[Rfam]
RNA sequence: CGGCCUGUUGGAAACGUUUCUCCGGAAGCGCUUCCUUGAACAAAAGGAUUGCCCACAUGGCACUCAGCGUUGAAGAAAAAGCUCAGAUCGUAACCGACUACCAGCAAGCUGUU
Number, nucleotide and partner (000 for none) at each position: 001c000002g000003g000004c000005c000006u000007g000008u025009u024010g023011g022012a021013a000014a000015c000016g000017u000018u000019u000020c000021u012022c011023c010024g009025g008026a000027a000028g000029c000030g000031c000032u000033u000034c000035c000036u067037u066038g065039a000040a000041c000042a000043a000044a000045a000046g064047g063048a000049u000050u000051g000052c000053c000054c000055a000056c000057a000058u000059g000060g000061c000062a000063c047064u046065c038066a037067g036068c000069g000070u000071u000072g000073a000074a000075g000076a000077a000078a000079a000080a000081g000082c000083u000084c000085a000086g000087a000088u000089c000090g000091u000092a000093a000094c000095c000096g000097a000098c000099u000100a000101c000102c000103a000104g000105c000106a000107a000108g000109c000110u000111g000112u000113u000